About this RNA:
The family of this 47-nucleotide sequence from Gordonia jinhuaensis is "L31-Actinobacteria ribosomal protein leader". The family's consensus secondary structure is taken from published work.
RNA sequence: CCGGUUCCGGUUCACGCCGCCGAAUCCACGGCGGUGACCCGGCGACC
Numbered sequence: 001c002c003g004g005u006u007c008c009g010g011u012u013c014a015c016g017c018c019g020c021c022g023a024a025u026c027c028a029c030g031g032c033g034g035u036g037a038c039c040c041g042g043c044g045a046c047c
Base pairs, nucleotide, nucleotide: 003047004046005045007042008041009040010039015036016035017034018033019032020031021030022029

Taxonomically the source falls in Gordonia (Bacteria, Bacillati, Actinomycetota, Gordoniaceae).
A search with the family's covariance model found it, with a score of 57 bits.